[Rfam]
Source information:
The record is a 203-nucleotide RNA from Escherichia coli, which matches "IS102 RNA" in Rfam. Rfam classes the family as a small RNA. This family consists of a group of Shigella flexneri and Escherichia coli RNA genes which are 208 bases in length and are found between the yeeP and flu genes. The function of this RNA is unknown. NCBI's taxonomy places the organism under Bacteria, Pseudomonadati, Pseudomonadota, Escherichia, Escherichia coli. The base pairs follow the family's consensus structure, which was predicted with PFOLD.
RNA sequence: ACGAUCGAUAACUAUUUAAUCGAUCGUUUAUAUCGAUCGUUAUGCUAAUAAUAACACCCGUUAGCAAUGUAUGCAGACACACAGACAUGAGAUUCAGGGAACAACAGAGCCACACGUCAGAAACUUCCAUCAGCCGGAUCUGCGGCACUGUAACCCUUCACCUGCAGGUAUCCACAUUUGUGGAUACCGGCUUUUUAUUCACC
Numbered sequence: 001a002c003g004a005u006c007g008a009u010a011a012c013u014a015u016u017u018a019a020u021c022g023a024u025c026g027u028u029u030a031u032a033u034c035g036a037u038c039g040u041u042a043u044g045c046u047a048a049u050a051a052u053a054a055c056a057c058c059c060g061u062u063a064g065c066a067a068u069g070u071a072u073g074c075a076g077a078c079a080c081a082c083a084g085a086c087a088u089g090a091g092a093u094u095c096a097g098g099g100a101a102c103a104a105c106a107g108a109g110c111c112a113c114a115c116g117u118c119a120g121a122a123a124c125u126u127c128c129a130u131c132a133g134c135c136g137g138a139u140c141u142g143c144g145g146c147a148c149u150g151u152a153a154c155c156c157u158u159c160a161c162c163u164g165c166a167g168g169u170a171u172c173c174a175c176a177u178u179u180g181u182g183g184a185u186a187c188c189g190g191c192u193u194u195u196u197a198u199u200c201a202c203c
Base pairs, nucleotide, nucleotide: 019041021039022038023037024036025035026034060078061077062076064074065073097156098155099154133146134145135144136143164191165190167188168187169186170185171184172183173182174181175180